[Rfam]
RNA sequence: GCUUUUGAGGAGCGUUGCGACGGAACGGUGUUUGUUGUCCCGAUUUUCCGCCAGGCUCAAAAGCUUCCACGUUACCGUCGGCAUACCCCGACCUUAACGGCGCUCACCCAAU
Dot-bracket structure: .(((((((............(((((....................)))))......))))))).................................................